[Rfam]
RNA: CRISPR RNA direct repeat element
RNA sequence: GUUUCAUUACCCAUAUUAUUGCGGGUUAAUUGCGAG
Numbered sequence: 001g002u003u004u005c006a007u008u009a010c011c012c013a014u015a016u017u018a019u020u021g022c023g024g025g026u027u028a029a030u031u032g033c034g035a036g
Stems, first nucleotide, its partner, number of pairs: 009026004014021002
Dot-bracket structure: ........((((.((....)).))))..........